[Rfam]
RNA sequence: UUGCAGCGUUGAGCGAUAGUUUACUCCCGUGAGGAAUCUGUCUAUUUAACGUUGCGAGAUAAAACAUGUCUUUUAUUCCCGCUCCUGAAUUUCGUUUCUUGCGCGAUGAUGUGGCCAUAACAAUU
Numbered sequence: 001u002u003g004c005a006g007c008g009u010u011g012a013g014c015g016a017u018a019g020u021u022u023a024c025u026c027c028c029g030u031g032a033g034g035a036a037u038c039u040g041u042c043u044a045u046u047u048a049a050c051g052u053u054g055c056g057a058g059a060u061a062a063a064a065c066a067u068g069u070c071u072u073u074u075a076u077u078c079c080c081g082c083u084c085c086u087g088a089a090u091u092u093c094g095u096u097u098c099u100u101g102c103g104c105g106a107u108g109a110u111g112u113g114g115c116c117a118u119a120a121c122a123a124u125u
Stems, first nucleotide, its partner, number of pairs: 003055003013047001015045001021036002024033003066118003070114002074111004080105003084101001087098003
The record is a 125-nucleotide sequence from Caenorhabditis nigoni, which matches "Caenorhabditis snoRNA ceN86" in Rfam. By type it is a C/D-box small nucleolar RNA. On this family, see Jia et al., BMC Mol Biol 2007: "Systematic identification of non-coding RNA 2,2,7-trimethylguanosine cap structures in Caenorhabditis elegans". Pairs were carried over by alignment from the consensus structure. Its family is annotated with nucleolus and RNA processing in the Gene Ontology.